[Rfam]
RNA sequence: UGGGCUUCGGCCUAAAUACUCACACGCGCCGACAUCAGGCAGUCGGGUGUCCGCAAGGAUGACUGCCUGUGGCGCGUGGCGGACCACAAC
Numbered sequence: 001u002g003g004g005c006u007u008c009g010g011c012c013u014a015a016a017u018a019c020u021c022a023c024a025c026g027c028g029c030c031g032a033c034a035u036c037a038g039g040c041a042g043u044c045g046g047g048u049g050u051c052c053g054c055a056a057g058g059a060u061g062a063c064u065g066c067c068u069g070u071g072g073c074g075c076g077u078g079g080c081g082g083a084c085c086a087c088a089a090c
Base pairs, nucleotide, nucleotide: 023078024077025076026075027074028073029072030071036069037068038067039066040065041064042063043062044061049060050059051058052057